Overview:
The family of this 97-nucleotide RNA sequence from Marinobacter profundi is "Bacterial small signal recognition particle RNA". Rfam's curators write: The signal recognition particle (SRP) is a universally conserved ribonucleoprotein involved in the co-translational targeting of proteins to membranes. A search with the family's covariance model found it, with a score of 69 bits. Pairs were carried over by alignment from the consensus structure, which is taken from published work. NCBI's taxonomy places the organism under Bacteria, Pseudomonadati, Pseudomonadota, Pseudomonadales, Marinobacter. The family's RNA type in Rfam is non-coding RNA gene.

[Rfam]
RNA sequence: CGCUGGUGCCUUCGCAACAACAAACCGUGAACCCGGUCAGGCCCGGAAGGGAGCAGCCGAAGCGGUGGACUUGUGUGCCGGAGUGUUGCUGGUGGGG
Numbered sequence: 001c002g003c004u005g006g007u008g009c010c011u012u013c014g015c016a017a018c019a020a021c022a023a024a025c026c027g028u029g030a031a032c033c034c035g036g037u038c039a040g041g042c043c044c045g046g047a048a049g050g051g052a053g054c055a056g057c058c059g060a061a062g063c064g065g066u067g068g069a070c071u072u073g074u075g076u077g078c079c080g081g082a083g084u085g086u087u088g089c090u091g092g093u094g095g096g097g
Stems, first nucleotide, its partner, number of pairs: 004091005010083005015075001017074004024066005034059004042051003